[Rfam]
Nucleotides: 115
Stems, first nucleotide, its partner, number of pairs: 010106001016100009026090010
Number, partner (000 for none) and nucleotide at each position: 001000u002000a003000g004000a005000a006000g007000a008000a009000u010106c011000u012000g013000u014000u015000a016100a017099g018098c019097u020096c021095a022094g023093g024092a025000g026090g027089g028088a029087u030086a031085g032084c033083g034082c035081c036000a037000c038000a039000c040000g041000u042000g043000a044000u045000c046000u047000u048000c049000a050000a051000g052000u053000u054000u055000u056000u057000c058000u059000u060000a061000u062000a063000u064000u065000u066000a067000a068000a069000u070000c071000c072000g073000a074000u075000c076000a077000c078000g079000u080000u081035g082034g083033u084032g085031c086030u087029a088028u089027c090026c091000a092024u093023c094022c095021u096020g097019a098018g099017c100016u101000c102000c103000a104000u105000g106010g107000g108000u109000u110000c111000u112000u113000c114000u115000u
Record summary:
This 115-nucleotide sequence from Hibiscus syriacus belongs to the Rfam family "MIR390 microRNA precursor family". Lineage of the source: Eukaryota > Streptophytina > Spermatophyta > Malvales > Hibiscus. For this family Rfam cites "ASRP: the Arabidopsis Small RNA Project Database" (Gustafson et al., Nucleic Acids Res, 2005). The family's consensus secondary structure was predicted with WAR.